[Rfam]
RNA sequence: CGACGCCGGGUGGGAGAGCUUCCGAUAGGGAAGCGCCGACGGGGCAACUCUCCCCAGAACCUCUCAGGCACCAGGACCAUCCGGAAGAG
Numbered sequence: 001c002g003a004c005g006c007c008g009g010g011u012g013g014g015a016g017a018g019c020u021u022c023c024g025a026u027a028g029g030g031a032a033g034c035g036c037c038g039a040c041g042g043g044g045c046a047a048c049u050c051u052c053c054c055c056a057g058a059a060c061c062u063c064u065c066a067g068g069c070a071c072c073a074g075g076a077c078c079a080u081c082c083g084g085a086a087g088a089g
Stems, first nucleotide, its partner, number of pairs: 006084008019033004035069003038065002042063003048057002
Shown here is an 89-nucleotide sequence from Branchiibius sp. NY16-3462-2, a member of the family "Glycine riboswitch aptamer". The base pairs follow the family's consensus structure. The organism belongs to Branchiibius, within Bacteria.